[Rfam]
RNA sequence: UCGCGUCUUCAGGGCGGGGCGUAAUUCCCCACCGGUGGUAUGGCCGUCAAGGCCGAGCCCACGAGCGCUUUUGCAUCCUUGCAAAAGGUCAGCAGAUCUGGUGAAAGGCCAGAGCCGACGGUUACAGUCCGGAUGAAAGAAGACGCGA
Number, nucleotide and partner (000 for none) at each position: 001u000002c000003g146004c145005g144006u143007c142008u141009u140010c139011a000012g000013g000014g000015c000016g000017g029018g028019g027020c000021g000022u000023a000024a000025u000026u000027c019028c018029c017030c000031a128032c127033c117034g116035g062036u061037g060038g059039u000040a000041u000042g000043g000044c000045c000046g000047u000048c000049a000050a000051g000052g000053c000054c000055g000056a000057g115058c114059c038060c037061a036062c035063g000064a000065g093066c092067g000068c000069u000070u000071u000072u000073g000074c000075a000076u000077c000078c000079u000080u000081g000082c000083a000084a000085a000086a000087g000088g000089u000090c000091a000092g066093c065094a000095g000096a000097u113098c112099u111100g110101g109102u000103g000104a000105a000106a000107g000108g000109c101110c100111a099112g098113a097114g058115c057116c034117g033118a000119c131120g130121g129122u000123u000124a000125c000126a000127g032128u031129c121130c120131g119132g000133a000134u000135g000136a000137a000138a000139g010140a009141a008142g007143a006144c005145g004146c003147g000148a000
The family of this 148-nucleotide sequence from Salinisphaera japonica is "FMN riboswitch aptamer (RFN element)". The match comes from Rfam's covariance-model search (117 bits). The organism belongs to Salinisphaera japonica, within Bacteria.